Annotation:
The family of this 104-nucleotide sequence from Humitalea rosea is "TPP riboswitch aptamer (THI element)". NCBI's taxonomy places the organism under Bacteria, Alphaproteobacteria, Acetobacterales, Roseomonadaceae, Humitalea. The match comes from Rfam's covariance-model search (60 bits).
RNA sequence: GCGGACAUCGGGGGGAGCCCAUACCGGGCUGAGAGGCGGGCAACCGCGACCCCUGGAACCUGCUCCGGUUCGGACCGGCGAAGGGAUCGGUGCGCCUUACCCGG
Numbered sequence: 001g002c003g004g005a006c007a008u009c010g011g012g013g014g015g016a017g018c019c020c021a022u023a024c025c026g027g028g029c030u031g032a033g034a035g036g037c038g039g040g041c042a043a044c045c046g047c048g049a050c051c052c053c054u055g056g057a058a059c060c061u062g063c064u065c066c067g068g069u070u071c072g073g074a075c076c077g078g079c080g081a082a083g084g085g086a087u088c089g090g091u092g093c094g095c096c097u098u099a100c101c102c103g104g
Stems, first nucleotide, its partner, number of pairs: 006092005011053004017029004036047004059084003065078004